[Rfam]
RNA sequence: CCGGGGUGCAGGGCUUAGCUCACCUGUGAACAGAGUUAGCGUCGGCAUCGUGUUCACAGUGGCUAAGUUCCGCUCCCUGG
Dot-bracket structure: ..........((((((((((.....(((((((..................)))))))...))))))))))..........
Numbered sequence: 001c002c003g004g005g006g007u008g009c010a011g012g013g014c015u016u017a018g019c020u021c022a023c024c025u026g027u028g029a030a031c032a033g034a035g036u037u038a039g040c041g042u043c044g045g046c047a048u049c050g051u052g053u054u055c056a057c058a059g060u061g062g063c064u065a066a067g068u069u070c071c072g073c074u075c076c077c078u079g080g
Stems, first nucleotide, its partner, number of pairs: 011070010026057007

A member of the RNA family "mir-27 microRNA precursor family" from Pelusios castaneus, 80 nucleotides long. A search with the family's covariance model found it, with a score of 78 bits. Rfam links the family to the GO terms RISC complex and miRNA-mediated post-transcriptional gene silencing. The literature on the family includes a 2005 paper in Genes Dev by Chen et al., "The developmental miRNA profiles of zebrafish as determined by small RNA cloning". The family has 82 seed sequences and 1,440 matches in Rfam 15.1.